[Rfam]
RNA sequence: CCCUGUAUCGAAUGUGACUGUGGUGACUGGUUGCCAGGUCAUUGAAACUGCAGGUAGAUUGAGCUGAAAGUCUUUCCCGUGUUUGCUAGACAACAUGUUCUUGACAAACCCUGUAUCUUUCAGACA
Numbered sequence: 001c002c003c004u005g006u007a008u009c010g011a012a013u014g015u016g017a018c019u020g021u022g023g024u025g026a027c028u029g030g031u032u033g034c035c036a037g038g039u040c041a042u043u044g045a046a047a048c049u050g051c052a053g054g055u056a057g058a059u060u061g062a063g064c065u066g067a068a069a070g071u072c073u074u075u076c077c078c079g080u081g082u083u084u085g086c087u088a089g090a091c092a093a094c095a096u097g098u099u100c101u102u103g104a105c106a107a108a109c110c111c112u113g114u115a116u117c118u119u120u121c122a123g124a125c126a
Base pairs, nucleotide, nucleotide: 002054003053004052005051006050007049014042015041016040017039018038019037022035023034024033025032065122066121067120068119069118070117081109082108083107084106085105086103088101089100090099
A member of the RNA family "Small nucleolar RNA SNORA71" from Astyanax mexicanus, 126 nucleotides long.
Lineage of the source: Eukaryota > Actinopteri > Clupeocephala > Characiformes > Astyanax.
Its family is annotated with RNA processing and nucleolus in the Gene Ontology.
It is annotated as an H/ACA-box small nucleolar RNA.
A search with the family's covariance model found it, with a score of 72 bits.